Shown here is a 518-nucleotide part of an RNA from Anaerococcus lactolyticus, a member of the family "Bacterial large subunit ribosomal RNA". The match comes from Rfam's covariance-model search (2699 bits).
RNA sequence: AAGAAAGGGCGCCAGGUGGAUGCCUUGGCACAUGAAGACGAAGAAGGACGUAAGUGAACGAAAACUAGGGCAAGCUCACAAAAAGCCAUAACCCCUAGGUCUCCGAAUGGGGAAACCCGGCUAGUGAAGAACUAGUCAUCACUAAGUGAAUACAUAGCUUAGUGAGGUAAGACCCUGCGAACUGAAACAUCUAAGUAGCAGGAGGAAAAGAAAGAAAACUCGAUUUUCCUAGUAGCGGCGAGCGAAAAGAAAACAGCCCAACUCAAUAAGGAUCAUCUUUAAGUAGUCAAAUCAUUUGGGAAAAUGAACCAAAGAAAGUGAAAGUCUUGUAGACGAAACUUAAAAAUGGACAGAGUGAAAGUAGCACCGGACACGAGGAAUCCGUUGUGAAGACAGGGGGCCCAUCCCCUAAGGCUAAAUACUAACAUGUGACCGAUAGCGAACAAGUACCGUGAGGGAAAGGUGAAAAGAACCCCGAAAGGGGAGUGAAACAGAACCUGAAACCUAGCGCCUACAAG
Numbered sequence: 001a002a003g004a005a006a007g008g009g010c011g012c013c014a015g016g017u018g019g020a021u022g023c024c025u026u027g028g029c030a031c032a033u034g035a036a037g038a039c040g041a042a043g044a045a046g047g048a049c050g051u052a053a054g055u056g057a058a059c060g061a062a063a064a065c066u067a068g069g070g071c072a073a074g075c076u077c078a079c080a081a082a083a084a085g086c087c088a089u090a091a092c093c094c095c096u097a098g099g100u101c102u103c104c105g106a107a108u109g110g111g112g113a114a115a116c117c118c119g120g121c122u123a124g125u126g127a128a129g130a131a132c133u134a135g136u137c138a139u140c141a142c143u144a145a146g147u148g149a150a151u152a153c154a155u156a157g158c159u160u161a162g163u164g165a166g167g168u169a170a171g172a173c174c175c176u177g178c179g180a181a182c183u184g185a186a187a188c189a190u191c192u193a194a195g196u197a198g199c200a201g202g203a204g205g206a207a208a209a210g211a212a213a214g215a216a217a218a219c220u221c222g223a224u225u226u227u228c229c230u231a232g233u234a235g236c237g238g239c240g241a242g243c244g245a246a247a248a249g250a251a252a253a254c255a256g257c258c259c260a261a262c263u264c265a266a267u268a269a270g271g272a273u274c275a276u277c278u279u280u281a282a283g284u285a286g287u288c289a290a291a292u293c294a295u296u297u298g299g300g301a302a303a304a305u306g307a308a309c310c311a312a313a314g315a316a317a318g319u320g321a322a323a324g325u326c327u328u329g330u331a332g333a334c335g336a337a338a339c340u341u342a343a344a345a346a347u348g349g350a351c352a353g354a355g356u357g358a359a360a361g362u363a364g365c366a367c368c369g370g371a372c373a374c375g376a377g378g379a380a381u382c383c384g385u386u387g388u389g390a391a392g393a394c395a396g397g398g399g400g401c402c403c404a405u406c407c408c409c410u411a412a413g414g415c416u417a418a419a420u421a422c423u424a425a426c427a428u429g430u431g432a433c434c435g436a437u438a439g440c441g442a443a444c445a446a447g448u449a450c451c452g453u454g455a456g457g458g459a460a461a462g463g464u465g466a467a468a469a470g471a472a473c474c475c476c477g478a479a480a481g482g483g484g485a486g487u488g489a490a491a492c493a494g495a496a497c498c499u500g501a502a503a504c505c506u507a508g509c510g511c512c513u514a515c516a517a518g
Stems, first nucleotide, its partner, number of pairs: 007513006014506003022498001023463002027434002029431006036423002038168002046104003049060003065098006074086003109118003119137007139165009173204001174202005184191002214221002224419001225252004235243002255416004263358001264353001273349004278344007286334003292307005310314001316328003364388003368384004395410005450457002473484004

The base pairs follow the family's consensus structure, which is taken from published work. The source organism's lineage runs through Bacteria, Tissierellia, Tissierellales, Anaerococcus and Anaerococcus lactolyticus.